[Rfam]
RNA sequence: GAUGGGGGUAGAGGCGCAGAAGAGUUGAGUAGCCUGAGUGAGGGUAACAACGAUAAUUCCAGUUAAAAGGUUCUUUUUCCGAAGCGAAGAUGAGUGUCUAGUUAUUUUCGUUGGUAUUGCUUUGAAUAGGAGUAAUACUUUCAUUGUUAGCGGUUUGCUGGCAAUCGGGAGCUACAUACCCG
Numbered sequence: 001g002a003u004g005g006g007g008g009u010a011g012a013g014g015c016g017c018a019g020a021a022g023a024g025u026u027g028a029g030u031a032g033c034c035u036g037a038g039u040g041a042g043g044g045u046a047a048c049a050a051c052g053a054u055a056a057u058u059c060c061a062g063u064u065a066a067a068a069g070g071u072u073c074u075u076u077u078u079c080c081g082a083a084g085c086g087a088a089g090a091u092g093a094g095u096g097u098c099u100a101g102u103u104a105u106u107u108u109c110g111u112u113g114g115u116a117u118u119g120c121u122u123u124g125a126a127u128a129g130g131a132g133u134a135a136u137a138c139u140u141u142c143a144u145u146g147u148u149a150g151c152g153g154u155u156u157g158c159u160g161g162c163a164a165u166c167g168g169g170a171g172c173u174a175c176a177u178a179c180c181c182g
Stems, first nucleotide, its partner, number of pairs: 006177001008175004016079001018077007032064001034062003038058001083112011113139011141167001143165008
Dot-bracket structure: .....(.((((....(.(((((((.......(.(((.(...................).))).)......))))))).)...(((((((((((........)))))))))))(((((((((((.....))))))))))).(.((((((((.......)))))))).)....)))).).....

Lysine riboswitch aptamer: a 182-nucleotide RNA sequence from Bacillus sp. FJAT-50079. About the family: Riboswitches are metabolite binding domains within certain messenger RNAs that serve as precision sensors for their corresponding targets. A reference for the family is Mandal et al. (2003), "Riboswitches Control Fundamental Biochemical Pathways in Bacillus subtilis and Other Bacteria", Cell. The source organism's lineage runs through Bacteria, Bacillati, Caryophanales, Bacillaceae and Bacillus.